[Rfam]
RNA sequence: GAUCGGAUCUAAUCUAGCCUCUCCUAGGCUUUGUCUGUAAAUGGUUUCACAAUCCAGACAUAGCCUGACAGAGGUUAGGUGAAAUCUGUUAA
Number, nucleotide and partner (000 for none) at each position: 001g000002a000003u000004c000005g000006g000007a000008u000009c000010u000011a000012a080013u079014c078015u077016a076017g075018c074019c073020u072021c000022u000023c000024c000025u000026a000027g065028g064029c063030u062031u000032u060033g059034u058035c057036u056037g000038u000039a000040a000041a000042u000043g000044g000045u000046u000047u000048c000049a000050c000051a000052a000053u000054c000055c000056a036057g035058a034059c033060a032061u000062a030063g029064c028065c027066u000067g000068a000069c000070a000071g000072a020073g019074g018075u017076u016077a015078g014079g013080u012081g000082a000083a000084a000085u000086c000087u000088g000089u000090u000091a000092a000